[Rfam]
RNA: JUMPstart RNA
RNA sequence: CAGUGCGUUGGUUGCUGUUAAGCCAGGGGCGGUAGCGUU
Numbered sequence: 001c002a003g004u005g006c007g008u009u010g011g012u013u014g015c016u017g018u019u020a021a022g023c024c025a026g027g028g029g030c031g032g033u034a035g036c037g038u039u
Base pairs, nucleotide, nucleotide: 008026009025010024011023012022